[Rfam]
Record summary: Rfam assigns this 48-nucleotide RNA from Callorhinchus milii to the family "K10 transport/localisation element (TLS)". The match comes from Rfam's covariance-model search (44 bits). It is annotated as a cis-regulatory element. Gene Ontology terms of the family: mRNA transport and intracellular mRNA localization. Rfam describes the family as follows. This family represents the 44 nucleotide K10 transport/localisation element (TLS) from Drosophila melanogaster. K10 TLS is responsible for the transport and anterior localisation of K10 mRNA and acts to establish dorsoventral polarity in the oocyte.

Nucleotides: 048
Base pairs, nucleotide, nucleotide: 001048002047003046004045005044006043007042008041009040011038012037013036014035015034016033017032018031019030020029
Number, partner (000 for none) and nucleotide at each position: 001048g002047a003046a004045a005044u006043g007042g008041u009040u010000u011038g012037c013036a014035u015034u016033u017032u018031u019030a020029a021000a022000u023000u024000u025000a026000u027000u028000u029020u030019u031018a032017a033016a034015a035014a036013u037012g038011c039000a040009a041008a042007c043006c044005a045004u046003u047002u048001c